[Rfam]
RNA: TD-2 RNA
RNA sequence: ACCGCCAAGGAUGGCGGCUAAAUCAUACAGAAGCGAUAUUUUGGCUUUGCCAAAAUUCGCUAUAAACAGAUGUACAAGGAAGUACAUCUGUUUAUGCCG
Numbered sequence: 001a002c003c004g005c006c007a008a009g010g011a012u013g014g015c016g017g018c019u020a021a022a023u024c025a026u027a028c029a030g031a032a033g034c035g036a037u038a039u040u041u042u043g044g045c046u047u048u049g050c051c052a053a054a055a056u057u058c059g060c061u062a063u064a065a066a067c068a069g070a071u072g073u074a075c076a077a078g079g080a081a082g083u084a085c086a087u088c089u090g091u092u093u094a095u096g097c098c099g
Base pairs, nucleotide, nucleotide: 002017003016004015005014006013034059035058036057038056039055040054041053042052043051044050045049062095063094064093065092066091067090068089069088070087071086072085073084074083075082